[Rfam]
RNA sequence: GGAUCGAUGAUGACCCUCACGCGCAUUCCUUGGAAAAUCUGAACAAAAUGAGUGAGAACCCCUUUCGUCGUUCUCAUCGGAUCUGAGGUCU
Numbered sequence: 001g002g003a004u005c006g007a008u009g010a011u012g013a014c015c016c017u018c019a020c021g022c023g024c025a026u027u028c029c030u031u032g033g034a035a036a037a038u039c040u041g042a043a044c045a046a047a048a049u050g051a052g053u054g055a056g057a058a059c060c061c062c063u064u065u066c067g068u069c070g071u072u073c074u075c076a077u078c079g080g081a082u083c084u085g086a087g088g089u090c091u
Stems, first nucleotide, its partner, number of pairs: 001091005024054005030046003
RNA: Small nucleolar RNA SNORD116
Organism: Rousettus aegyptiacus